[Rfam]
RNA sequence: UUCCCAUUCAGUAGUCCCGGACGAAUUAGAAUUUAGCGUACGGUUUGGACAUAAUGGGGAAAUGGACUUUACUCUUUUUGCAGCGAAGUUGAUCCUUAUGAUCUCUUUGCUAGCCAUAAGUUUAAUACAAUG
Numbered sequence: 001u002u003c004c005c006a007u008u009c010a011g012u013a014g015u016c017c018c019g020g021a022c023g024a025a026u027u028a029g030a031a032u033u034u035a036g037c038g039u040a041c042g043g044u045u046u047g048g049a050c051a052u053a054a055u056g057g058g059g060a061a062a063u064g065g066a067c068u069u070u071a072c073u074c075u076u077u078u079u080g081c082a083g084c085g086a087a088g089u090u091g092a093u094c095c096u097u098a099u100g101a102u103c104u105c106u107u108u109g110c111u112a113g114c115c116a117u118a119a120g121u122u123u124a125a126u127a128c129a130a131u132g
Base pairs, nucleotide, nucleotide: 001060002059003058004057005056006055007054008053011050012049014046017043018042019041021039022038023037026036027035028034069125070124071123074120075119076118080114081113082111083110084109085108086107087106088105091103092102093101094100
RNA: Caenorhabditis sRNA ceN93
Organism: Caenorhabditis briggsae